A member of the RNA family "Streptococcus sRNA SpR19" from Streptococcus gordonii, 123 nucleotides long. The base pairs follow the family's consensus structure, which was predicted with mfold. On this family, see Mann et al., PLoS Pathog 2012: "Control of virulence by small RNAs in Streptococcus pneumoniae". Rfam's curators put it in the seed alignment.
[Rfam]
RNA sequence: GUCUACUUUUUAGCGAGUCUGGGAUAGUGUGAGCCAGAUAGGGAAGCAGAGCAGAUGGCGCUUUUGGUUAACAUUUUUAAACGUAAUGAAGUAAUAAAUUAGGGUGGAACCGCGUUUUUGACG
Dot-bracket structure: ((.(.((.((......((....((.((((..(.(....(..........)...).)..)))).)).....))..(((((.......)))))...........)).)).)..))..........